[Rfam]
RNA: Small nucleolar RNA SNORA40
Organism: Dipodomys ordii
RNA sequence: UGUGUGUGUGUGUGCAUUUGUUUAGCAAAGCCUUACAUACAGGUGCAAAUAGUAAAUCCUCUUUUGCAACCUAAAACUCAUGGUUGAAUAUGAGUUUUGGUACAUGUAAAAAGGAAUAUG
Numbered sequence: 001u002g003u004g005u006g007u008g009u010g011u012g013u014g015c016a017u018u019u020g021u022u023u024a025g026c027a028a029a030g031c032c033u034u035a036c037a038u039a040c041a042g043g044u045g046c047a048a049a050u051a052g053u054a055a056a057u058c059c060u061c062u063u064u065u066g067c068a069a070c071c072u073a074a075a076a077c078u079c080a081u082g083g084u085u086g087a088a089u090a091u092g093a094g095u096u097u098u099g100g101u102a103c104a105u106g107u108a109a110a111a112a113g114g115a116a117u118a119u120g
Stems, first nucleotide, its partner, number of pairs: 001041003005037001008032001011029001013027003056117002059114002062111005072099010